[Rfam]
RNA: Small nucleolar RNA SNORA32
RNA sequence: UGGGCAUGAUCAAGGCUUUCAGAAUGCACUUUCUCAUUUGCUGUGGACAAGACCAUAAAAAACUCCCCACCACGUUUUCUAUGUGCCACCUUGUUAGCAGUCAAUUUACUGGGAACAAUA
Numbered sequence: 001u002g003g004g005c006a007u008g009a010u011c012a013a014g015g016c017u018u019u020c021a022g023a024a025u026g027c028a029c030u031u032u033c034u035c036a037u038u039u040g041c042u043g044u045g046g047a048c049a050a051g052a053c054c055a056u057a058a059a060a061a062a063c064u065c066c067c068c069a070c071c072a073c074g075u076u077u078u079c080u081a082u083g084u085g086c087c088a089c090c091u092u093g094u095u096a097g098c099a100g101u102c103a104a105u106u107u108a109c110u111g112g113g114a115a116c117a118a119u120a
Base pairs, nucleotide, nucleotide: 003053005051007049010046011045012044026041027040028039066113067112068111069110074105075104076103084099085098086097
Dot-bracket structure: ..(.(.(..(((.............(((..........)))..)))..).).)............((((....(((.......(((..........)))...)))....)))).......